Record summary: Shown here is a 404-nucleotide RNA from TM7 phylum sp. oral taxon 348, a member of the family "transfer-messenger RNA". Clan: tRNA clan. The source organism's lineage runs through Bacteria, Bacteria candidate phyla and Candidatus Saccharimonadota.

[Rfam]
RNA sequence: GGGGCUGAUAUAGCUUUAGACAAUUGGAACUUAACAAUAUAUUCCGCAGAUCGAUCUAUACGCGUAAAGUAUUAUUUAAUUGCAAAAUCUAAAAUUGCGUCUGCAUUUGAUAGUGUAAAGAGUAUUUUUGCUCCACGAUCACUUGCAGUUGUUGCUGCUUAAUUUAAGGCAACCAUUUCGUUUAUUUUCGCAGUAGUAGAAUAGGCGAGGUGUUAUAUUUUAUACUGCUUGCUGUCAGUUAGAAGUAGUGCGCUGAUGGGACUAUUUAUUCUACGUAACUAACUAUCAUUUUUUGGUUUAUUUAUAUAUUGAUUGUUGGUUAUAAAAAAUUAAAUAAACCUAUAUCUGUAGACGAGUAUAUUGUUACCAUUUGGACCGGGGGGCAGUACCCCGCAGCUCCACCA
Numbered sequence: 001g002g003g004g005c006u007g008a009u010a011u012a013g014c015u016u017u018a019g020a021c022a023a024u025u026g027g028a029a030c031u032u033a034a035c036a037a038u039a040u041a042u043u044c045c046g047c048a049g050a051u052c053g054a055u056c057u058a059u060a061c062g063c064g065u066a067a068a069g070u071a072u073u074a075u076u077u078a079a080u081u082g083c084a085a086a087a088u089c090u091a092a093a094a095u096u097g098c099g100u101c102u103g104c105a106u107u108u109g110a111u112a113g114u115g116u117a118a119a120g121a122g123u124a125u126u127u128u129u130g131c132u133c134c135a136c137g138a139u140c141a142c143u144u145g146c147a148g149u150u151g152u153u154g155c156u157g158c159u160u161a162a163u164u165u166a167a168g169g170c171a172a173c174c175a176u177u178u179c180g181u182u183u184a185u186u187u188u189c190g191c192a193g194u195a196g197u198a199g200a201a202u203a204g205g206c207g208a209g210g211u212g213u214u215a216u217a218u219u220u221u222a223u224a225c226u227g228c229u230u231g232c233u234g235u236c237a238g239u240u241a242g243a244a245g246u247a248g249u250g251c252g253c254u255g256a257u258g259g260g261a262c263u264a265u266u267u268a269u270u271c272u273a274c275g276u277a278a279c280u281a282a283c284u285a286u287c288a289u290u291u292u293u294u295g296g297u298u299u300a301u302u303u304a305u306a307u308a309u310u311g312a313u314u315g316u317u318g319g320u321u322a323u324a325a326a327a328a329a330u331u332a333a334a335u336a337a338a339c340c341u342a343u344a345u346c347u348g349u350a351g352a353c354g355a356g357u358a359u360a361u362u363g364u365u366a367c368c369a370u371u372u373g374g375a376c377c378g379g380g381g382g383g384c385a386g387u388a389c390c391c392c393g394c395a396g397c398u399c400c401a402c403c404a
Stems, first nucleotide, its partner, number of pairs: 001400007021373003025369003034364011047348005052064002057071003151173006174212006181205007190228006232259008244276001248272001278320006285313003291306001293304001295339001297337002301333002377393005